Shown here is a 52-nucleotide RNA, a member of the family "Streptococcus sRNA SpF59 (ldcC RNA)".

RNA sequence: CGACCGUUCCCCAGGGAACCGAGGCCAUACGGACAGCCGGGUCGAAUGCCGA
Numbered sequence: 001c002g003a004c005c006g007u008u009c010c011c012c013a014g015g016g017a018a019c020c021g022a023g024g025c026c027a028u029a030c031g032g033a034c035a036g037c038c039g040g041g042u043c044g045a046a047u048g049c050c051g052a
Stems, first nucleotide, its partner, number of pairs: 001044005006019005
Description: Rfam's curators put it in the seed alignment.